[Rfam]
RNA sequence: GACUAAGUGCAUGAGGUGGAUGCCUUGGCGAUUACAGGCGAUGAAAGACGCGAUAGCCUGCGAAAAGCUCCGGGGAGCUGGCAAAUAAGCUUUGAUCCGGAGGUCUCUGAAUGGGGAAACCCACCCGCAAGGGUACCUGUCUCUGAAUACAUAGGGGGCAAGGAGCGAACGUGGUGAACUGAAACAUCUAAGUAGCCAUAGGAACAGAAAUCAACCGAGAUUCCCAGAGUAGUGGCGAGCGAAAUGGGAACAGCCUGCAACUUUUAGCAUCUGUGUUAGCAAAAUGGUUUGGAAAAGCCAGCGAUAGUGGGUGAUAGCCCCGUAUGCGAAAACAUGGAUGUAGAACUAAGGUUGCGACAAGUAGGGCGGGACACGUGAAAUCCUGUCUGAAGAUGGGGGGACCAUCCUCCAAGGCUAAAUACUCGUAAUCGACCGAUAGUGAACCAGUACCGUGAGGGAAAGGCGAAAAGAACCCCGGGAGGGGAGUGAAAUAGAUCCUGAAACCGCAUGCAUACAAA
Numbered sequence: 001g002a003c004u005a006a007g008u009g010c011a012u013g014a015g016g017u018g019g020a021u022g023c024c025u026u027g028g029c030g031a032u033u034a035c036a037g038g039c040g041a042u043g044a045a046a047g048a049c050g051c052g053a054u055a056g057c058c059u060g061c062g063a064a065a066a067g068c069u070c071c072g073g074g075g076a077g078c079u080g081g082c083a084a085a086u087a088a089g090c091u092u093u094g095a096u097c098c099g100g101a102g103g104u105c106u107c108u109g110a111a112u113g114g115g116g117a118a119a120c121c122c123a124c125c126c127g128c129a130a131g132g133g134u135a136c137c138u139g140u141c142u143c144u145g146a147a148u149a150c151a152u153a154g155g156g157g158g159c160a161a162g163g164a165g166c167g168a169a170c171g172u173g174g175u176g177a178a179c180u181g182a183a184a185c186a187u188c189u190a191a192g193u194a195g196c197c198a199u200a201g202g203a204a205c206a207g208a209a210a211u212c213a214a215c216c217g218a219g220a221u222u223c224c225c226a227g228a229g230u231a232g233u234g235g236c237g238a239g240c241g242a243a244a245u246g247g248g249a250a251c252a253g254c255c256u257g258c259a260a261c262u263u264u265u266a267g268c269a270u271c272u273g274u275g276u277u278a279g280c281a282a283a284a285u286g287g288u289u290u291g292g293a294a295a296a297g298c299c300a301g302c303g304a305u306a307g308u309g310g311g312u313g314a315u316a317g318c319c320c321c322g323u324a325u326g327c328g329a330a331a332a333c334a335u336g337g338a339u340g341u342a343g344a345a346c347u348a349a350g351g352u353u354g355c356g357a358c359a360a361g362u363a364g365g366g367c368g369g370g371a372c373a374c375g376u377g378a379a380a381u382c383c384u385g386u387c388u389g390a391a392g393a394u395g396g397g398g399g400g401a402c403c404a405u406c407c408u409c410c411a412a413g414g415c416u417a418a419a420u421a422c423u424c425g426u427a428a429u430c431g432a433c434c435g436a437u438a439g440u441g442a443a444c445c446a447g448u449a450c451c452g453u454g455a456g457g458g459a460a461a462g463g464c465g466a467a468a469a470g471a472a473c474c475c476c477g478g479g480a481g482g483g484g485a486g487u488g489a490a491a492u493a494g495a496u497c498c499u500g501a502a503a504c505c506g507c508a509u510g511c512a513u514a515c516a517a518a
Base pairs, nucleotide, nucleotide: 007513008512009511010510011509012508013507015505016504022498023463024462027434028433029431030430031429032428033427034426035425036423037422038166039165046108047107048106049062050061051060068102069101070100071099072098073097074096077090078089079088113122114121115120123134124133125132126131136163137162138160139159140158141157142156143155144154170201171199172198173197174196175195181188182187211218212217221419222249223248224247225246226245232240233239252416253415254414255413260352261351262350263349264348265343267341268340269339270338271337272336273335274334275333276332277331279327280326281325285300286299287298288297289296309321310320311319364388365387366386367385368384369383370382371381395410396409397408398407399406450457451456473484474483475482476481
Rfam assigns this 518-nucleotide part of an RNA from Betaproteobacteria bacterium UKL13-2 to the family "Bacterial large subunit ribosomal RNA". Taxonomically the source falls in Betaproteobacteria (Bacteria, Pseudomonadati, Pseudomonadota). It scores 2751 bits against the family's covariance model.